[Rfam]
RNA sequence: AUAUGUUACGAUGAAGAUUCAAAGCUCCCUCUUCUGAUAUAAAAGUUGAGGAAACUCUGCUGGCAGAAUCGAACCUAAUUUAACUUCAUGCCUACUGAGUAA
Numbered sequence: 001a002u003a004u005g006u007u008a009c010g011a012u013g014a015a016g017a018u019u020c021a022a023a024g025c026u027c028c029c030u031c032u033u034c035u036g037a038u039a040u041a042a043a044a045g046u047u048g049a050g051g052a053a054a055c056u057c058u059g060c061u062g063g064c065a066g067a068a069u070c071g072a073a074c075c076u077a078a079u080u081u082a083a084c085u086u087c088a089u090g091c092c093u094a095c096u097g098a099g100u101a102a
Stems, first nucleotide, its partner, number of pairs: 006102004
A member of the RNA family "Small nucleolar RNA R30/Z108" from Helianthus annuus, 102 nucleotides long. The family is grouped with related families in Rfam's "SNORD100 clan". It scores 65 bits against the family's covariance model. By type it is a C/D-box small nucleolar RNA. About the family: snoR30 is a C/D box small nucleolar RNA which acts as a methylation guide for 18S ribosomal RNA in plants. The base pairs follow the family's consensus structure, which was predicted with PFOLD. For this family Rfam cites "Experimental RNomics. Identification of 140 Candidates for Small Non-Messenger RNAs in the Plant Arabidopsis thaliana" (Marker et al., Curr Biol, 2002).